[Rfam]
The family of this 319-nucleotide RNA from Neoroseomonas alkaliterrae is "Alphaproteobacteria transfer-messenger RNA". Rfam classes the family as a non-coding RNA gene. The match comes from Rfam's covariance-model search (252 bits).
RNA sequence: CCCCUCGAUUCGGCUGGGCGCAUCGCCUAUAUUGCCGGUGCCACCUCGGUGGCUAUGGCGAUAAACGGCGCAUGGAAUAAGCGUUGCGGACCCGGGGGCGGUACCCGGCGCCUCCACCAUCACCCGCCUUGUCAGCGGCCGAUGGGGGCGAAACAGGCUCGACGCGCGCGGUAAAGAUGCGCCUUUUGCCCGGCAUGGUACCGCCGUCAUCGGACCAAAUCACAAGUGCCAACGACAACAGCCGCGAGGCUGUGGCGCUCGCUGCCUAACCAUAGGUAAGCGCGGUCCGGGGGGCACCGGGCAACAGAAGCCCCCCACU
Numbered sequence: 001c002c003c004c005u006c007g008a009u010u011c012g013g014c015u016g017g018g019c020g021c022a023u024c025g026c027c028u029a030u031a032u033u034g035c036c037g038g039u040g041c042c043a044c045c046u047c048g049g050u051g052g053c054u055a056u057g058g059c060g061a062u063a064a065a066c067g068g069c070g071c072a073u074g075g076a077a078u079a080a081g082c083g084u085u086g087c088g089g090a091c092c093c094g095g096g097g098g099c100g101g102u103a104c105c106c107g108g109c110g111c112c113u114c115c116a117c118c119a120u121c122a123c124c125c126g127c128c129u130u131g132u133c134a135g136c137g138g139c140c141g142a143u144g145g146g147g148g149c150g151a152a153a154c155a156g157g158c159u160c161g162a163c164g165c166g167c168g169c170g171g172u173a174a175a176g177a178u179g180c181g182c183c184u185u186u187u188g189c190c191c192g193g194c195a196u197g198g199u200a201c202c203g204c205c206g207u208c209a210u211c212g213g214a215c216c217a218a219a220u221c222a223c224a225a226g227u228g229c230c231a232a233c234g235a236c237a238a239c240a241g242c243c244g245c246g247a248g249g250c251u252g253u254g255g256c257g258c259u260c261g262c263u264g265c266c267u268a269a270c271c272a273u274a275g276g277u278a279a280g281c282g283c284g285g286u287c288c289g290g291g292g293g294g295c296a297c298c299g300g301g302c303a304a305c306a307g308a309a310g311c312c313c314c315c316c317a318c319u
Stems, first nucleotide, its partner, number of pairs: 040053005057190005067183007082168003086165003092108005109150007191206004196217003201213002283299004289316006